[Rfam]
RNA: Actinobacteria sRNA Ms_IGR-5
Organism: Streptomyces regalis
RNA sequence: ACGCCGAGAGAGGAGGUGAUCCGGUACAUGUAUGAAUCCCGGACGAGCGAGGUGGCUGCGGGCUAGCGGCUCGCCACCACACGCAGUGCGGUGCCGGACCAGCACGUGAGAAAAGCGUGCAGCCGGCCCAAUCCAACGCAGUCACCCGACCCGCGAGCUCGCCGGUAACGUCCGGCCGGCUCCCCCGCCACCGGCGGAGGGACCCGAGCUCGCGGGUCGUCUGCG
Numbered sequence: 001a002c003g004c005c006g007a008g009a010g011a012g013g014a015g016g017u018g019a020u021c022c023g024g025u026a027c028a029u030g031u032a033u034g035a036a037u038c039c040c041g042g043a044c045g046a047g048c049g050a051g052g053u054g055g056c057u058g059c060g061g062g063c064u065a066g067c068g069g070c071u072c073g074c075c076a077c078c079a080c081a082c083g084c085a086g087u088g089c090g091g092u093g094c095c096g097g098a099c100c101a102g103c104a105c106g107u108g109a110g111a112a113a114a115g116c117g118u119g120c121a122g123c124c125g126g127c128c129c130a131a132u133c134c135a136a137c138g139c140a141g142u143c144a145c146c147c148g149a150c151c152c153g154c155g156a157g158c159u160c161g162c163c164g165g166u167a168a169c170g171u172c173c174g175g176c177c178g179g180c181u182c183c184c185c186c187g188c189c190a191c192c193g194g195c196g197g198a199g200g201g202a203c204c205c206g207a208g209c210u211c212g213c214g215g216g217u218c219g220u221c222u223g224c225g
Stems, first nucleotide, its partner, number of pairs: 016059003020055001061128004066123002069120002072117001074115001147219013161180006